The record is a 133-nucleotide sequence from Acipenser ruthenus, which matches "Small nucleolar RNA SNORA68" in Rfam. On this family, see Ganot et al., Genes Dev 1997: "The family of box ACA small nucleolar RNAs is defined by an evolutionarily conserved secondary structure and ubiquitous sequence elements essential for RNA accumulation". Gene Ontology terms of the family: nucleolus and RNA processing. From the family's description: U68 is a member of the H/ACA class of small nucleolar RNAs (snoRNAs) which act as guides in the the modification of uridines to pseudouridines. A search with the family's covariance model found it, with a score of 68 bits.
[Rfam]
RNA sequence: AAUGCACCCAAAACCCAAAGAUCAUUAUUUUCAUCUAAUAAUGCUCCUGCCUGGUGUGCAAAGAGAAAAUCUGUACCUUGUCGCCUUUCCUAUGCUGCUGUGCUACUGAAAGUGAAUUCAAGGUUCAACAGUG
Numbered sequence: 001a002a003u004g005c006a007c008c009c010a011a012a013a014c015c016c017a018a019a020g021a022u023c024a025u026u027a028u029u030u031u032c033a034u035c036u037a038a039u040a041a042u043g044c045u046c047c048u049g050c051c052u053g054g055u056g057u058g059c060a061a062a063g064a065g066a067a068a069a070u071c072u073g074u075a076c077c078u079u080g081u082c083g084c085c086u087u088u089c090c091u092a093u094g095c096u097g098c099u100g101u102g103c104u105a106c107u108g109a110a111a112g113u114g115a116a117u118u119c120a121a122g123g124u125u126c127a128a129c130a131g132u133g
Stems, first nucleotide, its partner, number of pairs: 003060005009054001020046002023043007073126001075124005085112005094103002